The family of this 78-nucleotide RNA sequence from Dictyobacter vulcani is "Fluoride riboswitch aptamer (crcB RNA motif)". Its family is annotated with positive regulation of gene expression and response to fluoride in the Gene Ontology. Rfam 15.1 lists 2,293 matches to the family in 1,982 species. It scores 38 bits against the family's covariance model.

[Rfam]
RNA sequence: AACAACGUUGGCGAUGGAACUCGCCAGGCCAUCUAUACGCUGGCCGAACUGCGCAAUGCUGAUGGCUCCUGACAACCA
Numbered sequence: 001a002a003c004a005a006c007g008u009u010g011g012c013g014a015u016g017g018a019a020c021u022c023g024c025c026a027g028g029c030c031a032u033c034u035a036u037a038c039g040c041u042g043g044c045c046g047a048a049c050u051g052c053g054c055a056a057u058g059c060u061g062a063u064g065g066c067u068c069c070u071g072a073c074a075a076c077c078a
Stems, first nucleotide, its partner, number of pairs: 010025004016069003020065002051059002